msiK RNA: a 56-nucleotide sequence from Rhodococcus sp. P1Y.

[Rfam]
RNA sequence: AUCGGAAACCUCCACUUGGAUCGUCCGGCACGUUCCUGCCGGUGAAGGAGCACACC
Number, nucleotide and partner (000 for none) at each position: 001a000002u000003c000004g000005g000006a000007a000008a000009c048010c047011u046012c000013c044014a043015c000016u000017u000018g000019g000020a000021u000022c000023g000024u000025c042026c041027g040028g039029c038030a037031c000032g000033u000034u000035c000036c000037u030038g029039c028040c027041g026042g025043u014044g013045a000046a011047g010048g009049a000050g000051c000052a000053c000054a000055c000056c000
By type it is a cis-regulatory element.